[Rfam]
RNA: DUF3800-IX RNA
RNA sequence: UUCCCCUCGGCGAAAGAGUGCCCUCAUUGGGCGCGUGCCAGGUGGUUGAAUGCUCUGCAUAAGAGCCAUAACCUGGAUAGCCGAGGCGGUUUUAU
Number, nucleotide and partner (000 for none) at each position: 001u000002u000003c089004c088005c086006c085007u000008c083009g082010g081011c080012g000013a000014a000015a000016g000017a000018g034019u033020g032021c031022c030023c029024u000025c000026a000027u000028u000029g023030g022031g021032c020033g019034c018035g000036u000037g000038c076039c075040a074041g073042g072043u071044g000045g000046u000047u000048g000049a000050a000051u000052g000053c000054u000055c000056u000057g000058c000059a000060u000061a000062a000063g000064a000065g000066c000067c000068a000069u000070a000071a043072c042073c041074u040075g039076g038077a000078u000079a000080g011081c010082c009083g008084a000085g006086g005087c000088g004089g003090u000091u000092u000093u000094a000095u000